[Rfam]
RNA sequence: UUAGUAUCCCAGGGGGGCUGGUGUUACCGGCUGAGAGUAAGAAUAUAAUUCUUAGACCCUAUACCUGAUCUGGUUAAUGCCAGCGUAGGAAGAGGUUUUUAUGUAAUU
Numbered sequence: 001u002u003a004g005u006a007u008c009c010c011a012g013g014g015g016g017g018c019u020g021g022u023g024u025u026a027c028c029g030g031c032u033g034a035g036a037g038u039a040a041g042a043a044u045a046u047a048a049u050u051c052u053u054a055g056a057c058c059c060u061a062u063a064c065c066u067g068a069u070c071u072g073g074u075u076a077a078u079g080c081c082a083g084c085g086u087a088g089g090a091a092g093a094g095g096u097u098u099u100u101a102u103g104u105a106a107u108u
Stems, first nucleotide, its partner, number of pairs: 006096003010092001011060004017031005038054007064089004070083004
Rfam assigns this 108-nucleotide RNA sequence from Clostridium ljungdahlii to the family "TPP riboswitch aptamer (THI element)".